[Rfam]
RNA sequence: CUUGGAUCCAUGAUGUUAAUGAAAAACUGCGUUAUCUAUCUGUAAGUUCCUAUAUGGAGUUGAUGAUAUUGUUGAUUUCUGAGAUCCAAC
Numbered sequence: 001c002u003u004g005g006a007u008c009c010a011u012g013a014u015g016u017u018a019a020u021g022a023a024a025a026a027c028u029g030c031g032u033u034a035u036c037u038a039u040c041u042g043u044a045a046g047u048u049c050c051u052a053u054a055u056g057g058a059g060u061u062g063a064u065g066a067u068a069u070u071g072u073u074g075a076u077u078u079c080u081g082a083g084a085u086c087c088a089a090c
Stems, first nucleotide, its partner, number of pairs: 002089006
RNA: Small nucleolar RNA snoR27
Organism: Cucurbita maxima